[Rfam]
Repression of heat shock gene expression (ROSE) element: a 94-nucleotide RNA from Microvirga tunisiensis.
RNA sequence: GCCGAGGCCUUUCAGGGGCUUGGCAUUGCGGGCGCCGGCGGGUGUCCGGCGCUCUCAUGUCCAUGUUGCUCAAUGGAGGAUAUGGUGAUGAGAU
Numbered sequence: 001g002c003c004g005a006g007g008c009c010u011u012u013c014a015g016g017g018g019c020u021u022g023g024c025a026u027u028g029c030g031g032g033c034g035c036c037g038g039c040g041g042g043u044g045u046c047c048g049g050c051g052c053u054c055u056c057a058u059g060u061c062c063a064u065g066u067u068g069c070u071c072a073a074u075g076g077a078g079g080a081u082a083u084g085g086u087g088a089u090g091a092g093a094u
Stems, first nucleotide, its partner, number of pairs: 001024006008018002031053008054092005061085007069078003
Its family is annotated with response to temperature stimulus and regulation of translation in the Gene Ontology.
This family represents a 5' UTR cis-regulatory element found in heat shock mRNAs and is known as the ROSE (repression of heat shock gene expression) element. The ROSE element is a negative regulator of heat shock gene expression.
The family's consensus secondary structure is taken from published work.
The literature on the family includes a 2004 paper in J Bacteriol by Balsiger et al., "Replicon-specific regulation of small heat shock genes in Agrobacterium tumefaciens".
The family's RNA type in Rfam is RNA thermoregulator.
A search with the family's covariance model found it, with a score of 60 bits.